[Rfam]
Streptomyces sRNA 4677: a 244-nucleotide RNA from Streptomyces aurantiogriseus. The family has 12 seed sequences and 563 matches in Rfam 15.1. A reference for the family is Hindra et al. (2014), "Complex intra-operonic dynamics mediated by a small RNA in Streptomyces coelicolor", PLoS One. The family's RNA type in Rfam is small RNA. Rfam's curators write: Located in the intergenic region between anti-sigma factor SCO4677 gene and a putative regulatory protein gene SCO4676. scr4677 expression requires the SCO4677 activity and scr4677 sRNA itself seem to affect the levels of the SCO4676-associated transcripts. The match comes from Rfam's covariance-model search (195 bits). The organism belongs to Streptomyces, within Bacteria.
RNA sequence: CACCCCGGUCUGACCUGCGCUCCCUAUGUACUGACCACUGGGGAGAAAAAACCCCACCAAGCCCCACCCCUCCCUCCCGCGGGGCAAACUCACUCCCGAGAGUGAAUAUGCCCAACUGGGCUGGAUUCGGGACCGGUUGCCUGCCUUACGCUCAGCACGACCCAACCGCAGACAUGCGACGGCCCUCGCCGGGACUGGCAUCCCAGUGCGAGGGCCUGACCACCGAGGAAGUUAGGGCUUCCUG
Numbered sequence: 001c002a003c004c005c006c007g008g009u010c011u012g013a014c015c016u017g018c019g020c021u022c023c024c025u026a027u028g029u030a031c032u033g034a035c036c037a038c039u040g041g042g043g044a045g046a047a048a049a050a051a052c053c054c055c056a057c058c059a060a061g062c063c064c065c066a067c068c069c070c071u072c073c074c075u076c077c078c079g080c081g082g083g084g085c086a087a088a089c090u091c092a093c094u095c096c097c098g099a100g101a102g103u104g105a106a107u108a109u110g111c112c113c114a115a116c117u118g119g120g121c122u123g124g125a126u127u128c129g130g131g132a133c134c135g136g137u138u139g140c141c142u143g144c145c146u147u148a149c150g151c152u153c154a155g156c157a158c159g160a161c162c163c164a165a166c167c168g169c170a171g172a173c174a175u176g177c178g179a180c181g182g183c184c185c186u187c188g189c190c191g192g193g194a195c196u197g198g199c200a201u202c203c204c205a206g207u208g209c210g211a212g213g214g215c216c217u218g219a220c221c222a223c224c225g226a227g228g229a230a231g232u233u234a235g236g237g238c239u240u241c242c243u244g
Stems, first nucleotide, its partner, number of pairs: 007224003017076001019074001090105006120156005181216005187210003191204004227242005